[Rfam]
RNA sequence: AUCUUAUCAAGAGAGGUGGAGGGACUGGCCCUUUGAAGCCCGGCAACCAAUUUUCUAAUAAAAAAGAAAAUGACGGUGCUAAUUCCUGCAGAGUGUAGACUCUGAAAGAUGAGGA
Numbered sequence: 001a002u003c004u005u006a007u008c009a010a011g012a013g014a015g016g017u018g019g020a021g022g023g024a025c026u027g028g029c030c031c032u033u034u035g036a037a038g039c040c041c042g043g044c045a046a047c048c049a050a051u052u053u054u055c056u057a058a059u060a061a062a063a064a065a066g067a068a069a070a071u072g073a074c075g076g077u078g079c080u081a082a083u084u085c086c087u088g089c090a091g092a093g094u095g096u097a098g099a100c101u102c103u104g105a106a107a108g109a110u111g112a113g114g115a
Base pairs, nucleotide, nucleotide: 002114003113004112005111006110007109008108013041015040016039017038021031022030023029025088027086028085042080043079044078045077047076048075050071051070052069053068054067055066056065084107089104090103091102092101093100094099
SAM riboswitch aptamer (S box leader): a 115-nucleotide RNA from Bacillus solimangrovi.